Shown here is a 248-nucleotide RNA sequence from Medicago truncatula, a member of the family "MIR2655 microRNA precursor family". The base pairs follow the family's consensus structure, which was predicted with RNAalifold. A search with the family's covariance model found it, with a score of 200 bits. Lineage of the source: Eukaryota > Euphyllophyta > Mesangiospermae > Fabaceae > Medicago.

RNA sequence: CUCUUAAUUAUUAAAAGUUUCGUUUCGGUCCCUUAACUUAUUUUUGGGUUUCAUUUUGGUCCCUUAACUUAUUUUUUGGUUUCGUUUUGGUCCCUUACCUCUAAUACAUUCAUCCUAGCAUAAAGGACCAAAGUGGUUGACGGAGGAAGAGUUAAGGGACCAAAACGAAACCAAAAAAUAAGUUAAGGAACCAAAACGAAACUUUUAAUAGUUAAGGGACCAAAACGAAAUUUUUAAUAGUUAAGGGA
Numbered sequence: 001c002u003c004u005u006a007a008u009u010a011u012u013a014a015a016a017g018u019u020u021c022g023u024u025u026c027g028g029u030c031c032c033u034u035a036a037c038u039u040a041u042u043u044u045u046g047g048g049u050u051u052c053a054u055u056u057u058g059g060u061c062c063c064u065u066a067a068c069u070u071a072u073u074u075u076u077u078g079g080u081u082u083c084g085u086u087u088u089g090g091u092c093c094c095u096u097a098c099c100u101c102u103a104a105u106a107c108a109u110u111c112a113u114c115c116u117a118g119c120a121u122a123a124a125g126g127a128c129c130a131a132a133g134u135g136g137u138u139g140a141c142g143g144a145g146g147a148a149g150a151g152u153u154a155a156g157g158g159a160c161c162a163a164a165a166c167g168a169a170a171c172c173a174a175a176a177a178a179u180a181a182g183u184u185a186a187g188g189a190a191c192c193a194a195a196a197c198g199a200a201a202c203u204u205u206u207a208a209u210a211g212u213u214a215a216g217g218g219a220c221c222a223a224a225a226c227g228a229a230a231u232u233u234u235u236a237a238u239a240g241u242u243a244a245g246g247g248a
Base pairs, nucleotide, nucleotide: 002246003245004244005243006242007241008240023225024224025223027221028220029219031217032216033215034214035213036212037211038210042208043207046204047203